[Rfam]
Nucleotides: 305
Stems, first nucleotide, its partner, number of pairs: 001040003004023005011016001028037003044304010056292002059289001061287001064283004069279005075273004079264007088256004093252001099250008108238002112235004117229009127166008136157009167172001174219005185210003192203003
Number, partner (000 for none) and nucleotide at each position: 001040g002039c003038c004023g005022a006021g007020c008019u009000a010000a011016u012000u013000a014000a015000c016011g017000c018000a019008a020007g021006u022005u023004u024000a025000u026000a027000a028037c029036c030035c031000a032000a033000g034000u035030g036029g037028g038003g039002g040001c041000a042000u043000c044304a045303a046302g047301g048300u049299g050298u051297u052296g053295g054000a055000a056292c057291g058000c059289u060000g061287g062000u063000u064283u065282g066281g067280u068000c069279u070278c071277a072276g073275c074000u075273g076272g077271u078270c079264g080263g081262g082261u083260c084259u085258g086000u087000c088256g089255u090254g091253g092000c093252u094000c095000u096000a097000u098000u099250c100249u101248g102247g103246c104245u105244c106243g107000c108238c109237c110000g111000c112235u113234c114233c115232a116000a117229g118228c119227c120226g121225g122224g123223a124222g125221u126000u127166g128165a129164g130163c131162c132161g133160u134159g135000u136157g137156g138155u139154u140153u141152g142151g143150g144149c145000g146000a147000a148000g149144g150143c151142u152141c153140a154139g155138g156137c157136u158000u159134c160133a161132c162131g163130g164129u165128u166127c167172c168000u169000a170000g171000a172167g173000c174219g175218g176217a177216g178215g179000g180000c181000a182000c183000c184000g185210c186209g187208u188000a189000a190000g191000g192203c193202u194201g195000g196000c197000u198000u199000c200000a201194c202193a203192g204000a205000g206000c207000a208187a209186c210185g211000a212000u213000c214000a215178c216177c217176u218175c219174c220000c221125g222124c223123u224122c225121u226120c227119g228118g229117c230000a231000g232115u233114g234113g235112a236000a237109g238108g239000a240000u241000a242000a243106c244105g245104g246103g247102u248101c249100g250099g251000u252093g253091c254090c255089a256088c257000c258085c259084g260083g261082a262081u263080u264079c265000a266000u267000c268000a269000u270078g271077a272076c273075c274000c275073g276072c277071u278070g279069g280067a281066c282065c283064g284000u285000u286000c287061c288000a289059a290000u291057u292056g293000a294000a295053c296052c297051a298050a299049c300048g301047c302046u303045u304044u305000u

This 305-nucleotide RNA sequence from Malus baccata belongs to the Rfam family "Plant signal recognition particle RNA".
It scores 256 bits against the family's covariance model.
A reference for the family is Wild et al. (2002), "Towards the structure of the mammalian signal recognition particle", Curr Opin Struct Biol.
Pairs were carried over by alignment from the consensus structure, which is taken from published work.
The source organism's lineage runs through Eukaryota, Tracheophyta, Euphyllophyta, Maleae and Malus.
The family's RNA type in Rfam is non-coding RNA gene.